[Rfam]
RNA sequence: CUGUGAUAAGUAGGCAAGAUGUUGGCAUAGCUGUAAAUUAUUUUUGUUCCCGGCUUUGCCAACGUACUGCCAUUUAUUCGCAUG
Numbered sequence: 001c002u003g004u005g006a007u008a009a010g011u012a013g014g015c016a017a018g019a020u021g022u023u024g025g026c027a028u029a030g031c032u033g034u035a036a037a038u039u040a041u042u043u044u045u046g047u048u049c050c051c052g053g054c055u056u057u058g059c060c061a062a063c064g065u066a067c068u069g070c071c072a073u074u075u076a077u078u079c080g081c082a083u084g
Stems, first nucleotide, its partner, number of pairs: 005079002009075002013071004019065003023061005029055003
Rfam assigns this 84-nucleotide RNA from Holothuria leucospilota to the family "mir-31 microRNA precursor family". Rfam links the family to the GO terms RISC complex and gene silencing by miRNA. The family has 75 seed sequences and 1,181 matches in Rfam 15.1. Lineage of the source: Eukaryota > Echinodermata > Echinozoa > Holothuroidea > Holothuria. It scores 53 bits against the family's covariance model.